RNA sequence: UAAUUUAUUUGGGAUAAAUUAUCAUUUAUUUAUAAUAUUUCGAUAUUUGACUAUUCAAAGUCACUCAUUACUUCAAGGCCGACAACAUCAUCUAGGUAUUGGAAGCCCAAAUCCAAAUCCAAAACAAUUGGUGAAUUUAUAGAUCGAGU
Numbered sequence: 001u002a003a004u005u006u007a008u009u010u011g012g013g014a015u016a017a018a019u020u021a022u023c024a025u026u027u028a029u030u031u032a033u034a035a036u037a038u039u040u041c042g043a044u045a046u047u048u049g050a051c052u053a054u055u056c057a058a059a060g061u062c063a064c065u066c067a068u069u070a071c072u073u074c075a076a077g078g079c080c081g082a083c084a085a086c087a088u089c090a091u092c093u094a095g096g097u098a099u100u101g102g103a104a105g106c107c108c109a110a111a112u113c114c115a116a117a118u119c120c121a122a123a124a125c126a127a128u129u130g131g132u133g134a135a136u137u138u139a140u141a142g143a144u145c146g147a148g149u
Base pairs, nucleotide, nucleotide: 004147005146007144008142009141012138014136015135018132019131027126029124030123031122
Dot-bracket structure: ...((.(((..(.((..((.......(.(((..........................................................................................))).)....))..)).)..)).).))..